[Rfam]
RNA: tRNA
RNA sequence: GGCGCCGUGGCUUAGUUGGUUAAAGCGCCUGUCUAGUAAACAGGAGAUCGAGGGUUCGAAUCCCUCCGGAGCCU
Numbered sequence: 001g002g003c004g005c006c007g008u009g010g011c012u013u014a015g016u017u018g019g020u021u022a023a024a025g026c027g028c029c030u031g032u033c034u035a036g037u038a039a040a041c042a043g044g045a046g047a048u049c050g051a052g053g054g055u056u057c058g059a060a061u062c063c064c065u066c067c068g069g070a071g072c073c074u
Stems, first nucleotide, its partner, number of pairs: 001073003005069003010026004028044005050066005
Dot-bracket structure: (((.(((..((((.........)))).(((((.......))))).....(((((.......)))))))).))).